[Rfam]
RNA sequence: UACCUGUAAUGGGUCUUCAUCAGAAGGUUCACCGUUAUCCACGCACACCUUUCAGUGCACACCUUGGCAGGAGCCCAGUUCGAGUCUUGUGGUGGUCGCUUCACUCCCUUAGGUAACUAGGGAUGCUGGACGACCCUAAGCAAUGAAUGCAAUUGACGAGUGAAGAAAUUCAGCAGUCGGGCAUUCACCAUGAGACGGCGGCGCUGGAAUACUCCCGUCCGGGUUGAAGGGCGUGUGUUGGGCUGGUGUUUCGACUGAUAUU
Numbered sequence: 001u002a003c004c005u006g007u008a009a010u011g012g013g014u015c016u017u018c019a020u021c022a023g024a025a026g027g028u029u030c031a032c033c034g035u036u037a038u039c040c041a042c043g044c045a046c047a048c049c050u051u052u053c054a055g056u057g058c059a060c061a062c063c064u065u066g067g068c069a070g071g072a073g074c075c076c077a078g079u080u081c082g083a084g085u086c087u088u089g090u091g092g093u094g095g096u097c098g099c100u101u102c103a104c105u106c107c108c109u110u111a112g113g114u115a116a117c118u119a120g121g122g123a124u125g126c127u128g129g130a131c132g133a134c135c136c137u138a139a140g141c142a143a144u145g146a147a148u149g150c151a152a153u154u155g156a157c158g159a160g161u162g163a164a165g166a167a168a169u170u171c172a173g174c175a176g177u178c179g180g181g182c183a184u185u186c187a188c189c190a191u192g193a194g195a196c197g198g199c200g201g202c203g204c205u206g207g208a209a210u211a212c213u214c215c216c217g218u219c220c221g222g223g224u225u226g227a228a229g230g231g232c233g234u235g236u237g238u239u240g241g242g243c244u245g246g247u248g249u250u251u252c253g254a255c256u257g258a259u260a261u262u
Stems, first nucleotide, its partner, number of pairs: 002014003019259005030248005038242003041238006048231007063223002066219003070215004075207005080201003084196009094135001096133003100130004105123005111118002136140001144187007154179004162171003